A member of the RNA family "Iron response element I" from Trichechus manatus, 35 nucleotides long. The family's consensus secondary structure is taken from published work. Gene Ontology term of the family: response to iron ion. On this family, see Huang et al., Insect Biochem Mol Biol 1999: "An atypical iron-responsive element (IRE) within crayfish ferritin mRNA and an iron regulatory protein 1 (IRP1)-like protein from crayfish hepatopancreas".
RNA sequence: UGGUCUUCCGCUUCAACAGUGCUUGGACGGAACCC
Number, nucleotide and partner (000 for none) at each position: 001u000002g034003g033004u032005c000006u031007u030008c029009c000010g028011c000012u027013u026014c025015a024016a023017c021018a000019g000020u000021g017022c000023u016024u015025g014026g013027a012028c010029g008030g007031a006032a004033c003034c002035c000